The family of this 91-nucleotide RNA sequence from Paenibacillus solanacearum is "c-di-GMP-I riboswitch aptamer".
Pairs were carried over by alignment from the consensus structure, which is taken from published work.
Lineage of the source: Bacteria > Bacilli > Caryophanales > Paenibacillaceae > Paenibacillus.
Rfam 15.1 lists 5,092 matches to the family in 1,772 species.
RNA sequence: ACUGAAAAAAGGCAAACCUCGCCGAAAGGGAGGGACGCAAAGCCACGGGCCUAAACUCUAAGUUCAGGAGUACGGUAGCCGGGUUGCCAGG
Numbered sequence: 001a002c003u004g005a006a007a008a009a010a011g012g013c014a015a016a017c018c019u020c021g022c023c024g025a026a027a028g029g030g031a032g033g034g035a036c037g038c039a040a041a042g043c044c045a046c047g048g049g050c051c052u053a054a055a056c057u058c059u060a061a062g063u064u065c066a067g068g069a070g071u072a073c074g075g076u077a078g079c080c081g082g083g084u085u086g087c088c089a090g091g
Stems, first nucleotide, its partner, number of pairs: 012038002017033004022029002041085004046081003049076003056070004